[Rfam]
RNA sequence: CUCCUGCGCCUGCUGCGGACAGAUCAGGUGAAUGUGUGUAUCGAUGGCGCCGGCGGUGAUGAUCUUAUUCUCGCCCGCAAUCACGUCCGUGCAGCUGCCGACCACCAUGUUGGGCGAGACGCCCUCCAUGACAUCCGGGUUGCCCGCUUUGCCGAUGCCUACAAUCAUGCCGCCCUUGACGCCAAUGUCCGCCUUGACGAUGCCCGUGUAGUCGAUGAUGAGUGCGUUGGUGAUGACCAGGUCGAGCGAGUCGGCGUCGGGCCGGCCCGUCGCCUGGCCCAUGCCCUCGCGGAG
Numbered sequence: 001c002u003c004c005u006g007c008g009c010c011u012g013c014u015g016c017g018g019a020c021a022g023a024u025c026a027g028g029u030g031a032a033u034g035u036g037u038g039u040a041u042c043g044a045u046g047g048c049g050c051c052g053g054c055g056g057u058g059a060u061g062a063u064c065u066u067a068u069u070c071u072c073g074c075c076c077g078c079a080a081u082c083a084c085g086u087c088c089g090u091g092c093a094g095c096u097g098c099c100g101a102c103c104a105c106c107a108u109g110u111u112g113g114g115c116g117a118g119a120c121g122c123c124c125u126c127c128a129u130g131a132c133a134u135c136c137g138g139g140u141u142g143c144c145c146g147c148u149u150u151g152c153c154g155a156u157g158c159c160u161a162c163a164a165u166c167a168u169g170c171c172g173c174c175c176u177u178g179a180c181g182c183c184a185a186u187g188u189c190c191g192c193c194u195u196g197a198c199g200a201u202g203c204c205c206g207u208g209u210a211g212u213c214g215a216u217g218a219u220g221a222g223u224g225c226g227u228u229g230g231u232g233a234u235g236a237c238c239a240g241g242u243c244g245a246g247c248g249a250g251u252c253g254g255c256g257u258c259g260g261g262c263c264g265g266c267c268c269g270u271c272g273c274c275u276g277g278c279c280c281a282u283g284c285c286c287u288c289g290c291g292g293a294g
Stems, first nucleotide, its partner, number of pairs: 001294003005291004011163002015159001017075002021071002029052002033049002037046003056068003077152001080149001091143005098138002100135002106130002110128001112126003116122001169278004178271004182265002190226003194222002205214002228259003235252002
5' ureB small RNA: a 294-nucleotide sequence from Cordyceps javanica. Pairs were carried over by alignment from the consensus structure, which was predicted with mfold. Rfam links the family to the GO term negative regulation of gene expression. A search with the family's covariance model found it, with a score of 103 bits.